[Rfam]
Shown here is an 84-nucleotide RNA sequence from Mesobacillus foraminis, a member of the family "c-di-GMP-I-GGC riboswitch aptamer". The family's consensus secondary structure is taken from published work.
RNA sequence: UUAGAAAAAGGCAAACCUUUCGAAAGUUCGGGACGCAAAGUUACAGAUCUAAGGUAUUAAACUAUGAUGGCUGGGCUGCCUAAA
Numbered sequence: 001u002u003a004g005a006a007a008a009a010g011g012c013a014a015a016c017c018u019u020u021c022g023a024a025a026g027u028u029c030g031g032g033a034c035g036c037a038a039a040g041u042u043a044c045a046g047a048u049c050u051a052a053g054g055u056a057u058u059a060a061a062c063u064a065u066g067a068u069g070g071c072u073g074g075g076c077u078g079c080c081u082a083a084a
Stems, first nucleotide, its partner, number of pairs: 001084001003081002011036002016031002021026001034070001039077004044073003047068003